[Rfam]
RNA sequence: UUCUAUUCUCAGGGCGGGGUGGAAUUCCCCACCGGCGGUAAUUUCUGAAAGGGAAAAGCCCGCGAGCGCCUGUCAUUCUGUUGACAGGGUCAAGCAGAUCUGGUGAGAAUCCAGAGCCGACGGUUACAGUCCGGAUGGGAGAGGAUAGUG
Numbered sequence: 001u002u003c004u005a006u007u008c009u010c011a012g013g014g015c016g017g018g019g020u021g022g023a024a025u026u027c028c029c030c031a032c033c034g035g036c037g038g039u040a041a042u043u044u045c046u047g048a049a050a051g052g053g054a055a056a057a058g059c060c061c062g063c064g065a066g067c068g069c070c071u072g073u074c075a076u077u078c079u080g081u082u083g084a085c086a087g088g089g090u091c092a093a094g095c096a097g098a099u100c101u102g103g104u105g106a107g108a109a110u111c112c113a114g115a116g117c118c119g120a121c122g123g124u125u126a127c128a129g130u131c132c133g134g135a136u137g138g139g140a141g142a143g144g145a146u147a148g149u150g
Base pairs, nucleotide, nucleotide: 003148004147005146006145007144008143009142010141017029018028019027031130032129033119034118035063036062037061038060058117059116066095067094099115100114101113102112103111121133122132123131

A member of the RNA family "FMN riboswitch aptamer (RFN element)" from Desulfomarina profundi, 150 nucleotides long. Pairs were carried over by alignment from the consensus structure, which is taken from published work.